[Rfam]
RNA sequence: GAUGAAGCAAGGGGGUGCCCCAUGCGUCAGUUUUAUCAGCACUAUUUUACCGCGACAGCGAAGUUGUGCUGGUUGCGUUGGUUAAGCGUCCCACAACGAUUAACCAUGCUUGAAGGACUGAUGCAGUGGGAUGACCGCAAUUCUGAAAGUUGACUUGCCUGCAUCAUGUGUGACUGAGUAUUGGUGUAAAAUCACCCGCCAGCAGAUUAUACCUGCUGGUUUUUUUU
Numbered sequence: 001g002a003u004g005a006a007g008c009a010a011g012g013g014g015g016u017g018c019c020c021c022a023u024g025c026g027u028c029a030g031u032u033u034u035a036u037c038a039g040c041a042c043u044a045u046u047u048u049a050c051c052g053c054g055a056c057a058g059c060g061a062a063g064u065u066g067u068g069c070u071g072g073u074u075g076c077g078u079u080g081g082u083u084a085a086g087c088g089u090c091c092c093a094c095a096a097c098g099a100u101u102a103a104c105c106a107u108g109c110u111u112g113a114a115g116g117a118c119u120g121a122u123g124c125a126g127u128g129g130g131a132u133g134a135c136c137g138c139a140a141u142u143c144u145g146a147a148a149g150u151u152g153a154c155u156u157g158c159c160u161g162c163a164u165c166a167u168g169u170g171u172g173a174c175u176g177a178g179u180a181u182u183g184g185u186g187u188a189a190a191a192u193c194a195c196c197c198g199c200c201a202g203c204a205g206a207u208u209a210u211a212c213c214u215g216c217u218g219g220u221u222u223u224u225u226u227u
Stems, first nucleotide, its partner, number of pairs: 001165004007158005019130004023125012036113003039109003053075004057070004079106007087098003142153002198220008